Overview
The family of this 142-nucleotide RNA sequence from Phascolarctos cinereus is "Small nucleolar RNA SNORA47". It scores 82 bits against the family's covariance model. Its family is annotated with nucleolus and RNA processing in the Gene Ontology. The organism belongs to Phascolarctos, within Eukaryota.
RNA sequence: UGGAGGACAGAGAAGGUGAGGCAGUUGUGUACCGUGCUGCCUUCUACUGGUUAUUGCCUCCUACAGUAAAAUGAUGCUGGAAACGUUUGCCUUCCUCCAAUGCAUAGAAGGGAAUGGGCAGUGUUUCUCUUGCAGACAGUAU
Numbered sequence: 001u002g003g004a005g006g007a008c009a010g011a012g013a014a015g016g017u018g019a020g021g022c023a024g025u026u027g028u029g030u031a032c033c034g035u036g037c038u039g040c041c042u043u044c045u046a047c048u049g050g051u052u053a054u055u056g057c058c059u060c061c062u063a064c065a066g067u068a069a070a071a072u073g074a075u076g077c078u079g080g081a082a083a084c085g086u087u088u089g090c091c092u093u094c095c096u097c098c099a100a101u102g103c104a105u106a107g108a109a110g111g112g113a114a115u116g117g118g119c120a121g122u123g124u125u126u127c128u129c130u131u132g133c134a135g136a137c138a139g140u141a142u
Stems, first nucleotide, its partner, number of pairs: 002061005015048004019042007075134003080125002083122002091116001093114001095112001097111002